[Rfam]
RNA sequence: GCCUUUGCAUCGGCGCGACCGGCGUCCUAUAUUCGAGGGGCCGGUUCGCCGGCUAUGACGCUAAACCCUGUCUGGAAUAAGCGUAGUGGACCCGGGGGCAGUACCCGGCGCCUCCACCAUUUGCCGAACCAGGGAGCGGUUCCGCGACCGGAGGCGGAACCGCGACCUUGGGGCGAACCAUGGGGGCGAAACAGGAUCGACACGCGUGGUAAAGAGGCAGGUUGCGUCCGGCAUGGCACCACCGUUAUCGGGCCAAACGCAAUAGUUGCCAACGACAACUAUGCUCCGGAAGCUGCCGCCGCGUAAUGCGGCGUCGGUGACCGAUCAAAGCCCCGGGCGGUAGCACGUCCGGGCGGGGUCCGGGGGGCACCUGGCAACAGAAGCCCCCCACU
Numbered sequence: 001g002c003c004u005u006u007g008c009a010u011c012g013g014c015g016c017g018a019c020c021g022g023c024g025u026c027c028u029a030u031a032u033u034c035g036a037g038g039g040g041c042c043g044g045u046u047c048g049c050c051g052g053c054u055a056u057g058a059c060g061c062u063a064a065a066c067c068c069u070g071u072c073u074g075g076a077a078u079a080a081g082c083g084u085a086g087u088g089g090a091c092c093c094g095g096g097g098g099c100a101g102u103a104c105c106c107g108g109c110g111c112c113u114c115c116a117c118c119a120u121u122u123g124c125c126g127a128a129c130c131a132g133g134g135a136g137c138g139g140u141u142c143c144g145c146g147a148c149c150g151g152a153g154g155c156g157g158a159a160c161c162g163c164g165a166c167c168u169u170g171g172g173g174c175g176a177a178c179c180a181u182g183g184g185g186g187c188g189a190a191a192c193a194g195g196a197u198c199g200a201c202a203c204g205c206g207u208g209g210u211a212a213a214g215a216g217g218c219a220g221g222u223u224g225c226g227u228c229c230g231g232c233a234u235g236g237c238a239c240c241a242c243c244g245u246u247a248u249c250g251g252g253c254c255a256a257a258c259g260c261a262a263u264a265g266u267u268g269c270c271a272a273c274g275a276c277a278a279c280u281a282u283g284c285u286c287c288g289g290a291a292g293c294u295g296c297c298g299c300c301g302c303g304u305a306a307u308g309c310g311g312c313g314u315c316g317g318u319g320a321c322c323g324a325u326c327a328a329a330g331c332c333c334c335g336g337g338c339g340g341u342a343g344c345a346c347g348u349c350c351g352g353g354c355g356g357g358g359u360c361c362g363g364g365g366g367g368c369a370c371c372u373g374g375c376a377a378c379a380g381a382a383g384c385c386c387c388c389c390a391c392u
Stems, first nucleotide, its partner, number of pairs: 040053005057228005067221007082206003086203003092108005109188007229244003234255003239251002356372004362389006
Source information
A member of the RNA family "Alphaproteobacteria transfer-messenger RNA" from Roseospira goensis, 392 nucleotides long. The family's RNA type in Rfam is non-coding RNA gene. The source organism's lineage runs through Bacteria, Pseudomonadota, Rhodospirillales, Rhodospirillaceae and Roseospira. Clan: tRNA clan. On this family, see Williams and Bartel, RNA 1996: "Phylogenetic analysis of tmRNA secondary structure". Bacterial tmRNA, also known as 10Sa RNA or SsrA, is named for its dual tRNA and mRNA-like properties. Its role is to liberate the mRNA from a stalled ribosome. To accomplish this part of the tmRNA is used as a reading frame that ends in a translation stop signal. The broken mRNA is replaced in the ribosome by the tmRNA and translation of the tmRNA leads to addition of a proteolysis tag to the incomplete protein enabling recognition by a protease. Recently a number of permuted tmRNA genes have been found encoded in two parts. tmRNAs have been identified in eubacteria and some chloroplasts but are absent from archaeal and eukaryote nuclear genomes. The base pairs follow the family's consensus structure, which is taken from published work.